Shown here is a 54-nucleotide RNA from Rhinolophus ferrumequinum, a member of the family "Editing element of GABA-3 exon 9".
It scores 68 bits against the family's covariance model.
The literature on the family includes a 2007 paper in RNA by Ohlson et al., "Editing modifies the GABA(A) receptor subunit alpha3".
Taxonomically the source falls in Rhinolophus (Eukaryota, Craniata, Eutheria, Rhinolophidae).
[Rfam]
RNA sequence: AAAGAGGCUUAUACAACGGCCAUGGACUGGUUCAUUGCUGUGUGCUAUGCUUUU
Numbered sequence: 001a002a003a004g005a006g007g008c009u010u011a012u013a014c015a016a017c018g019g020c021c022a023u024g025g026a027c028u029g030g031u032u033c034a035u036u037g038c039u040g041u042g043u044g045c046u047a048u049g050c051u052u053u054u
Base pairs, nucleotide, nucleotide: 001054002053003052006051007050008049010047011046014044016041017040018039019038020037022035023034024033025032026031